[Rfam]
RNA sequence: CAUAGCCCUCCAGCUCCAUGCUAGAUGUAAAAAAGUCAGUGUGGCGUUUCAAUGGGCGUAAAAUGCAACUGUUCCACAAAACAAUUGUAAGCCUCCUGUGAGCUCACGAUCACCUAAUGGUUCAGACAUUU
Numbered sequence: 001c002a003u004a005g006c007c008c009u010c011c012a013g014c015u016c017c018a019u020g021c022u023a024g025a026u027g028u029a030a031a032a033a034a035g036u037c038a039g040u041g042u043g044g045c046g047u048u049u050c051a052a053u054g055g056g057c058g059u060a061a062a063a064u065g066c067a068a069c070u071g072u073u074c075c076a077c078a079a080a081a082c083a084a085u086u087g088u089a090a091g092c093c094u095c096c097u098g099u100g101a102g103c104u105c106a107c108g109a110u111c112a113c114c115u116a117a118u119g120g121u122u123c124a125g126a127c128a129u130u131u
Base pairs, nucleotide, nucleotide: 005057006056007055008054012048013047014046016044017043018042019041020040021039025036026035084110085109086108087107090104091103093102094101095100
A member of the RNA family "Nematode snoRNA ceN36-1", 131 nucleotides long. On this family, see Jia et al., BMC Mol Biol 2007: "Systematic identification of non-coding RNA 2,2,7-trimethylguanosine cap structures in Caenorhabditis elegans". By type it is an H/ACA-box small nucleolar RNA.